[Rfam]
RNA sequence: GCACGGACUCAUUCAGCGGGCAAUGUAGACUGUGUACCAAGUGACAGCUACAUUGCCCGCUGGGUUUCUGGCUGUCUGG
Numbered sequence: 001g002c003a004c005g006g007a008c009u010c011a012u013u014c015a016g017c018g019g020g021c022a023a024u025g026u027a028g029a030c031u032g033u034g035u036a037c038c039a040a041g042u043g044a045c046a047g048c049u050a051c052a053u054u055g056c057c058c059g060c061u062g063g064g065u066u067u068c069u070g071g072c073u074g075u076c077u078g079g
Stems, first nucleotide, its partner, number of pairs: 013063006020056009030047004
Description
mir-221 microRNA precursor family: a 79-nucleotide RNA sequence. Its family is annotated with miRNA-mediated post-transcriptional gene silencing and RISC complex in the Gene Ontology. For this family Rfam cites "MicroRNA profile of Marek's disease virus-transformed T-cell line MSB-1: predominance of virus-encoded microRNAs" (Yao et al., J Virol, 2008). The family's consensus secondary structure was predicted with RNAalifold. It scores 55 bits against the family's covariance model.